Background: A member of the RNA family "mir-10 microRNA precursor family" from Takifugu flavidus, 76 nucleotides long. A search with the family's covariance model found it, with a score of 58 bits. The literature on the family includes a 2001 paper in Science by Lee and Ambros, "An extensive class of small RNAs in Caenorhabditis elegans". Pairs were carried over by alignment from the consensus structure, which was predicted with PFOLD. Its family is annotated with miRNA-mediated post-transcriptional gene silencing and RISC complex in the Gene Ontology.
RNA sequence: CUAUAUUCACCCUGUAGAUCCGAAUUUGUGUAAACAUGACAGACGCUGCAAAUUCGCAUCUUGGGGAGGAUGUAGG
Numbered sequence: 001c002u003a004u005a006u007u008c009a010c011c012c013u014g015u016a017g018a019u020c021c022g023a024a025u026u027u028g029u030g031u032a033a034a035c036a037u038g039a040c041a042g043a044c045g046c047u048g049c050a051a052a053u054u055c056g057c058a059u060c061u062u063g064g065g066g067a068g069g070a071u072g073u074a075g076g
Base pairs, nucleotide, nucleotide: 002074003073004072005071006070007069010066011065012064016061017060018059019058021056022055023054024053025052026051027050028049029048030047
Dot-bracket structure: .((((((..(((...((((.((((((((((................)))))))))).))))..)))..))))))..